[Rfam]
RNA sequence: ACCUUAUAUAGAUGUAGUAACGCAAGACAGUUACGCAUUUCCCUGUAAGGUAGUGUUUCAAUAGAAGUGUAAACAACAAGUCUUAUUGUGUGGCUAUAAGUUGAAAUAAGAUGAGUUUAUAUGGAAUAGGUUAACCGUAAGACCUUGAGUUGAAAAACUCUAAAAUGAACCUAGAAAUAAAAGUUCUUGUUUUCUAGUUACGGUCAG
Numbered sequence: 001a002c003c004u005u006a007u008a009u010a011g012a013u014g015u016a017g018u019a020a021c022g023c024a025a026g027a028c029a030g031u032u033a034c035g036c037a038u039u040u041c042c043c044u045g046u047a048a049g050g051u052a053g054u055g056u057u058u059c060a061a062u063a064g065a066a067g068u069g070u071a072a073a074c075a076a077c078a079a080g081u082c083u084u085a086u087u088g089u090g091u092g093g094c095u096a097u098a099a100g101u102u103g104a105a106a107u108a109a110g111a112u113g114a115g116u117u118u119a120u121a122u123g124g125a126a127u128a129g130g131u132u133a134a135c136c137g138u139a140a141g142a143c144c145u146u147g148a149g150u151u152g153a154a155a156a157a158c159u160c161u162a163a164a165a166u167g168a169a170c171c172u173a174g175a176a177a178u179a180a181a182a183g184u185u186c187u188u189g190u191u192u193u194c195u196a197g198u199u200a201c202g203g204u205c206a207g
Base pairs, nucleotide, nucleotide: 001051002050003049004048005047006046007045008044010040011039012038013037014036015035017034018033019032020031021030022028067122068121069120070119071118072117073116074115081111082110083109084108085107086106087105092102093101095099128145129144130143131142132141134204135203136202137201138200139199140166147160148159149158150157151156171197172196173195174194175193176192177191180188181187

Rfam assigns this 207-nucleotide RNA to the family "IS605-orfB-I RNA". It is one of the family's seed sequences. Rfam classes the family as a small RNA.